[Rfam]
RNA sequence: UUACUUACCUGGCAGGGGAGAUACCAUGAUCAUGAAGAUGGUUUUCCCAGGGAAAGAUUUAUCUAUUACAUUCCAGAUGUGCUGACUCCUGCGAUUUCCUCAAAUGUGAGAAAUUCGGCUGCAUAAUUUGUGGUAGUGGAGGACUGUGUUAGUGCUCUACCCUG
Numbered sequence: 001u002u003a004c005u006u007a008c009c010u011g012g013c014a015g016g017g018g019a020g021a022u023a024c025c026a027u028g029a030u031c032a033u034g035a036a037g038a039u040g041g042u043u044u045u046c047c048c049a050g051g052g053a054a055a056g057a058u059u060u061a062u063c064u065a066u067u068a069c070a071u072u073c074c075a076g077a078u079g080u081g082c083u084g085a086c087u088c089c090u091g092c093g094a095u096u097u098c099c100u101c102a103a104a105u106g107u108g109a110g111a112a113a114u115u116c117g118g119c120u121g122c123a124u125a126a127u128u129u130g131u132g133g134u135a136g137u138g139g140a141g142g143a144c145u146g147u148g149u150u151a152g153u154g155c156u157c158u159a160c161c162c163u164g
Base pairs, nucleotide, nucleotide: 012122013121014120015119016048017047018046019045020044021043023042024041025040026039027038049090050089051088052087056083058081060079061078062077063076064075092117093116094115095113096111097110100108140163141162142161146157148155
Shown here is a 164-nucleotide RNA sequence from Dipodomys ordii, a member of the family "U1 spliceosomal RNA".
Taxonomically the source falls in Dipodomys (Eukaryota, Teleostomi, Euteleostomi, Theria).
It is annotated as a spliceosomal small nuclear RNA.
It scores 120 bits against the family's covariance model.
Rfam describes the family as follows. U1 is a small nuclear RNA (snRNA) component of the spliceosome (involved in pre-mRNA splicing). Its 5' end forms complementary base pairs with the 5' splice junction, thus defining the 5' donor site of an intron. There are significant differences in sequence and secondary structure between metazoan and yeast U1 snRNAs, the latter being much longer (568 nucleotides as compared to 164 nucleotides in human). Nevertheless, secondary structure predictions suggest that all U1 snRNAs share a 'common core' consisting of helices I, II, the proximal region of III, and IV. This family does not contain the larger yeast sequences.